[Rfam]
RNA sequence: ACUGGAGGACUAACAAGGUGGAGUCUGUAAAGUGGGGCUCUGCUGAUACCAUCCUCCUAGAGGAACGGGACGGAGAGAGCAGUCCUACUUACAGAAGAGCAGAGGACUCACUGUACCAUCCAACAUUU
Numbered sequence: 001a002c003u004g005g006a007g008g009a010c011u012a013a014c015a016a017g018g019u020g021g022a023g024u025c026u027g028u029a030a031a032g033u034g035g036g037g038c039u040c041u042g043c044u045g046a047u048a049c050c051a052u053c054c055u056c057c058u059a060g061a062g063g064a065a066c067g068g069g070a071c072g073g074a075g076a077g078a079g080c081a082g083u084c085c086u087a088c089u090u091a092c093a094g095a096a097g098a099g100c101a102g103a104g105g106a107c108u109c110a111c112u113g114u115a116c117c118a119u120c121c122a123a124c125a126u127u128u
Stems, first nucleotide, its partner, number of pairs: 002060002004057006017044003021040006067121003078112002081108006090101001092099001
Shown here is a 128-nucleotide RNA from Platysternon megacephalum, a member of the family "Small Cajal body specific RNA 4". Taxonomically the source falls in Platysternon (Eukaryota, Bilateria, Euteleostomi, Cryptodira). On this family, see Darzacq et al., EMBO J 2002: "Cajal body-specific small nuclear RNAs: a novel class of 2'-O-methylation and pseudouridylation guide RNAs". It is annotated as a small Cajal body RNA. A search with the family's covariance model found it, with a score of 110 bits. From the family's description: scaRNAs are a specific class of small nuclear RNAs which localise to the Cajal bodies and guide the modification of RNA polymerase II transcribed spliceosomal RNAs U1, U2, U4, U5 and U12. ACA26 belongs to the H/ACA box class of guide RNAs as it has the predicted hairpin-hinge-hairpin-tail structure, conserved H/ACA-box motifs and is found associated with GAR1. The base pairs follow the family's consensus structure, which was predicted with RNAfold.